[Rfam]
Nucleotides: 087
Base pairs, nucleotide, nucleotide: 001087002086004084005083006082007081
Number, partner (000 for none) and nucleotide at each position: 001087a002086g003000a004084g005083g006082c007081u008000g009000a010000u011000g012000a013000u014000g015000a016000u017000u018000g019000a020000a021000a022000g023000u024000g025000a026000u027000u028000a029000u030000g031000c032000c033000u034000a035000c036000a037000u038000u039000g040000u041000u042000u043000g044000a045000u046000c047000u048000a049000c050000a051000u052000g053000a054000u055000a056000u057000a058000a059000a060000a061000a062000g063000u064000c065000c066000a067000u068000u069000u070000a071000a072000c073000a074000g075000u076000a077000c078000u079000g080000a081007a082006g083005c084004c085000u086002c087001u

Shown here is an 87-nucleotide RNA sequence from Papaver nudicaule, a member of the family "Small nucleolar RNA SNORD34". For this family Rfam cites "Purified box C/D snoRNPs are able to reproduce site-specific 2'-O-methylation of target RNA in vitro" (Galardi et al., Mol Cell Biol, 2002). Rfam classes the family as a C/D-box small nucleolar RNA. Rfam describes the family as follows. snoRNA U34 is found in intron 5 of the ribosomal protein L13a gene in humans. It scores 51 bits against the family's covariance model.